[Rfam]
RNA sequence: AGGCCCCUGUGCGUAUCGAAGGCCCACGUGCCGACGUGGGCUAUCAGUAGGUACGGCGGGGGCCU
Numbered sequence: 001a002g003g004c005c006c007c008u009g010u011g012c013g014u015a016u017c018g019a020a021g022g023c024c025c026a027c028g029u030g031c032c033g034a035c036g037u038g039g040g041c042u043a044u045c046a047g048u049a050g051g052u053a054c055g056g057c058g059g060g061g062g063c064c065u
Base pairs, nucleotide, nucleotide: 001065002064003063004062005061006060007059008058009057010056012055013054014053015052016051017050021042022041023040024039025038026037027036028035029034
This 65-nucleotide RNA sequence belongs to the Rfam family "DUF3800-VIII RNA".
Rfam describes the family as follows. Bacteroidetes, Cyanobacteria, Firmicutes, Planctomycetes (1 example), Proteobacteria, Tenericutes (1 example).